RNA sequence: UGAUAGCUGUGAAGCGUGAGGUUGCUGCAGGCCAUGCAGGUGUUCCGUGGAGCGAAUGUCAAGUUAGAAAAACUGGCGACAA
Numbered sequence: 001u002g003a004u005a006g007c008u009g010u011g012a013a014g015c016g017u018g019a020g021g022u023u024g025c026u027g028c029a030g031g032c033c034a035u036g037c038a039g040g041u042g043u044u045c046c047g048u049g050g051a052g053c054g055a056a057u058g059u060c061a062a063g064u065u066a067g068a069a070a071a072a073c074u075g076g077c078g079a080c081a082a
Stems, first nucleotide, its partner, number of pairs: 014048003018045003025039005057081004063077004
Shown here is an 82-nucleotide RNA from Frisingicoccus caecimuris, a member of the family "S10-Clostridia ribosomal protein leader".
NCBI's taxonomy places the organism under Bacteria, Bacillati, Bacillota, Clostridia, Frisingicoccus.
A search with the family's covariance model found it, with a score of 88 bits.
On this family, see Eckert and Weinberg, BMC Microbiol 2020: "Discovery of 20 novel ribosomal leader candidates in bacteria and archaea".
The base pairs follow the family's consensus structure, which is taken from published work.